[Rfam]
The record is an 86-nucleotide RNA sequence, which matches "Small nucleolar RNA SNORD127" in Rfam.
By type it is a C/D-box small nucleolar RNA.
RNA sequence: UGGCAACAAUGAUGACAGGUACUGUAACUGUAUGUGAUAUUUCAUUACUGCAUGGAGACACCAGUCCCUCUAAACUGAUGUUGCCA
Dot-bracket structure: (((((((........................................................................)))))))
Numbered sequence: 001u002g003g004c005a006a007c008a009a010u011g012a013u014g015a016c017a018g019g020u021a022c023u024g025u026a027a028c029u030g031u032a033u034g035u036g037a038u039a040u041u042u043c044a045u046u047a048c049u050g051c052a053u054g055g056a057g058a059c060a061c062c063a064g065u066c067c068c069u070c071u072a073a074a075c076u077g078a079u080g081u082u083g084c085c086a
Stems, first nucleotide, its partner, number of pairs: 001086007
Record summary
Its family is annotated with RNA processing and nucleolus in the Gene Ontology. Rfam's curators put it in the seed alignment.